RNA sequence: CUCACCCAGUUCAGGUUUUCUGCUCUCCUGUGCUGUUCCUUAACAGAAGACUUGAGGUGGUGGAACAAGAAUCAUCUUCUCCCGCAGAGGAGAACUGCAAACAGAGGGUUGCUGGUCCUACAGGAGAAGGAAUU
Numbered sequence: 001c002u003c004a005c006c007c008a009g010u011u012c013a014g015g016u017u018u019u020c021u022g023c024u025c026u027c028c029u030g031u032g033c034u035g036u037u038c039c040u041u042a043a044c045a046g047a048a049g050a051c052u053u054g055a056g057g058u059g060g061u062g063g064a065a066c067a068a069g070a071a072u073c074a075u076c077u078u079c080u081c082c083c084g085c086a087g088a089g090g091a092g093a094a095c096u097g098c099a100a101a102c103a104g105a106g107g108g109u110u111g112c113u114g115g116u117c118c119u120a121c122a123g124g125a126g127a128a129g130g131a132a133u134u
Base pairs, nucleotide, nucleotide: 002063003062004061005060006059010056011055022052024050026048028046029045030044031043076129077128078127079126080125081124084121086119087118094116095115096114097112098111099110100109102107
A member of the RNA family "Small Cajal body specific RNA 11" from Rhipidura dahli, 134 nucleotides long. Lineage of the source: Eukaryota > Eumetazoa > Deuterostomia > Saurischia > Rhipidura. About the family: scaRNAs are a specific class of small nuclear RNAs which localise to the Cajal bodies and guide the modification of RNA polymerase II transcribed spliceosomal RNAs U1, U2, U4, U5 and U12. ACA57 belongs to the H/ACA box class of guide RNAs as it has the predicted hairpin-hinge-hairpin-tail structure, conserved H/ACA-box motifs and is found associated with GAR1. ACA57 is predicted to guide the pseudouridylation of the U5 spliceosomal RNA at position U43. Gene Ontology terms of the family: nucleolus, RNA processing and Cajal body. The match comes from Rfam's covariance-model search (38 bits).